This 81-nucleotide RNA from Fundidesulfovibrio magnetotacticus belongs to the Rfam family "skipping-rope RNA". NCBI's taxonomy places the organism under Bacteria, Thermodesulfobacteriota, Desulfovibrionia, Desulfovibrionaceae, Fundidesulfovibrio. Rfam classes the family as a small RNA.
[Rfam]
RNA sequence: CGGCGCUGACAGCAGAAAGGGCUCCGCUGCGGACCGGCCACGCUUGCCGGAAAUGAGGGACCUGCCGCCCCUCCAGCGCCG
Numbered sequence: 001c002g003g004c005g006c007u008g009a010c011a012g013c014a015g016a017a018a019g020g021g022c023u024c025c026g027c028u029g030c031g032g033a034c035c036g037g038c039c040a041c042g043c044u045u046g047c048c049g050g051a052a053a054u055g056a057g058g059g060a061c062c063u064g065c066c067g068c069c070c071c072u073c074c075a076g077c078g079c080c081g
Stems, first nucleotide, its partner, number of pairs: 001081008011028003015024001020066003030050001033044001035042002055073005